[Rfam]
RNA sequence: UUUUAACUGCCGAGUUUGCCUUUAGGCAAACGUCGUGUAUUGUAUGCCGUUUCUCAUUACAUUACGAAACGGCGGAAAAUAAGCAAUGCUCAAAAAUUAAUAUUUUUUCCGCUUGCUUAUUUUAAAU
Numbered sequence: 001u002u003u004u005a006a007c008u009g010c011c012g013a014g015u016u017u018g019c020c021u022u023u024a025g026g027c028a029a030a031c032g033u034c035g036u037g038u039a040u041u042g043u044a045u046g047c048c049g050u051u052u053c054u055c056a057u058u059a060c061a062u063u064a065c066g067a068a069a070c071g072g073c074g075g076a077a078a079a080u081a082a083g084c085a086a087u088g089c090u091c092a093a094a095a096a097u098u099a100a101u102a103u104u105u106u107u108u109c110c111g112c113u114u115g116c117u118u119a120u121u122u123u124a125a126a127u
Base pairs, nucleotide, nucleotide: 012034013033014031015030016029017028018027019026020025046073047072048071049070050069051068052067053066078121079120080119081118082117083116084115085114086113088112089111092107093106094105095104096103097102
A member of the RNA family "TD-1 RNA" from Treponema pedis, 127 nucleotides long. By type it is a cis-regulatory element. The organism belongs to Treponema pedis, within Bacteria.